The record is a 127-nucleotide RNA from Phyllostomus discolor, which matches "Small nucleolar RNA SNORA44" in Rfam. It scores 76 bits against the family's covariance model. Pairs were carried over by alignment from the consensus structure, which was predicted with PFOLD. It is annotated as an H/ACA-box small nucleolar RNA. Rfam's curators write: ACA44 is a member of the H/ACA class of snoRNA that guide the sites of modification of uridines to pseudouridines. The literature on the family includes a 2001 paper in EMBO J by Huttenhofer et al., "RNomics: an experimental approach that identifies 201 candidates for novel, small, non-messenger RNAs in mouse". The family is grouped with related families in Rfam's "SNORA44 clan".

RNA sequence: AUGAAAUAUUAUAGAUGUGCGGCUGGUUGUAGCCACAGGAUCUCCAGCUGCAGGGUGAGCAACCUGGAGACACUGACAGCUCAGGUCUGUGAAAUACCUGCAGCUGCCACUUGCCUCUCCUAGUGCA
Numbered sequence: 001a002u003g004a005a006a007u008a009u010u011a012u013a014g015a016u017g018u019g020c021g022g023c024u025g026g027u028u029g030u031a032g033c034c035a036c037a038g039g040a041u042c043u044c045c046a047g048c049u050g051c052a053g054g055g056u057g058a059g060c061a062a063c064c065u066g067g068a069g070a071c072a073c074u075g076a077c078a079g080c081u082c083a084g085g086u087c088u089g090u091g092a093a094a095u096a097c098c099u100g101c102a103g104c105u106g107c108c109a110c111u112u113g114c115c116u117c118u119c120c121u122a123g124u125g126c127a
Stems, first nucleotide, its partner, number of pairs: 009038002018031004066120005079107002082100004